[Rfam]
RNA: Aggregatibacter sRNA 54
Organism: Pasteurella felis
RNA sequence: GCGUAAGAUCCCGCACCGUUUUAGUAAUAGAGGACAUACACUUUGGACAGUCAUAGUCGAUACCCAUUACAAUUUUUAGCUUAAGUCUCGUCCUCACUUAUCGGCGAGAUGUCGC
Numbered sequence: 001g002c003g004u005a006a007g008a009u010c011c012c013g014c015a016c017c018g019u020u021u022u023a024g025u026a027a028u029a030g031a032g033g034a035c036a037u038a039c040a041c042u043u044u045g046g047a048c049a050g051u052c053a054u055a056g057u058c059g060a061u062a063c064c065c066a067u068u069a070c071a072a073u074u075u076u077u078a079g080c081u082u083a084a085g086u087c088u089c090g091u092c093c094u095c096a097c098u099u100a101u102c103g104g105c106g107a108g109a110u111g112u113c114g115c
Base pairs, nucleotide, nucleotide: 001014002013003012026082027081030077031076032075033074034073043066045064046063050061051060052059083112085110086109087108088107089106090105091104092103